[Rfam]
RNA sequence: GCCUUCUUAGCUCAGUGGUAGAGCGUUGCACUCGUAUUCACGGACGACGUAGAAUUGAUUAUGCAAAGGCCGCUAGUUCAAGUCUGGCAGGAGGCA
Numbered sequence: 001g002c003c004u005u006c007u008u009a010g011c012u013c014a015g016u017g018g019u020a021g022a023g024c025g026u027u028g029c030a031c032u033c034g035u036a037u038u039c040a041c042g043g044a045c046g047a048c049g050u051a052g053a054a055u056u057g058a059u060u061a062u063g064c065a066a067a068g069g070c071c072g073c074u075a076g077u078u079c080a081a082g083u084c085u086g087g088c089a090g091g092a093g094g095c096a
Stems, first nucleotide, its partner, number of pairs: 001095007010024004026066005072088005
Dot-bracket structure: (((((((..((((.......)))).(((((...............................))))).....(((((.......)))))))))))).
RNA: tRNA
Organism: Lentinula guzmanii